[Rfam]
RNA sequence: CCGGCGGGCCGUGACUGGCGUGCUGGGAUGGGACCGACCAUCGGGAAGCGGCCCCCGGAUCACCCCUGGGUGCCCGGUACGAGUGCCGUGCGCCUGGGCCAUGCCG
Numbered sequence: 001c002c003g004g005c006g007g008g009c010c011g012u013g014a015c016u017g018g019c020g021u022g023c024u025g026g027g028a029u030g031g032g033a034c035c036g037a038c039c040a041u042c043g044g045g046a047a048g049c050g051g052c053c054c055c056c057g058g059a060u061c062a063c064c065c066c067u068g069g070g071u072g073c074c075c076g077g078u079a080c081g082a083g084u085g086c087c088g089u090g091c092g093c094c095u096g097g098g099c100c101a102u103g104c105c106g
Base pairs, nucleotide, nucleotide: 004056006054007053008052009051010050011049012048015045016044017094018093019092020091021090028041029040030039031038085099086098087097
A member of the RNA family "ZMP/ZTP riboswitch aptamer (pfl RNA motif)" from Streptomyces sp. NWU339, 106 nucleotides long.
The match comes from Rfam's covariance-model search (40 bits).
The base pairs follow the family's consensus structure, which is taken from published work.
Rfam links the family to the GO terms one-carbon metabolic process and regulation of purine nucleotide biosynthetic process.